[Rfam]
RNA sequence: GUCCGCGACUGUAAAUAACGGAUGCAAGUAGCGGAAGCUGCAACAUGAUCGAAUUGCGGGGACGUCCUAAAGCCUAGCGGUACCAACACUCGGGGGAAACCUCAGGUGGGCCUGUGCUAAUCACACAGGAGGUAAGAACCCGCUAGGAUGCUACAAUGGAUGAUCCGCAGCGAAGCCCCUACCGGCGCAAGCCCACGGGGAACGUCCACAGACUAAGUGGUUAUGGGUAGCGCGCGCGCUGCUUAAGAUAUAGUCGGUCGCCCGGGAAACUGGCGC
Dot-bracket structure: ....(((.((((.....)))).)))...(((......)))...(((((.((...((((((....(((..........................................................................................)))...))))))((....(((..................)))....))...[.[[[[[..)).))))).((((((....))))))........]]]]]].....((((....))))...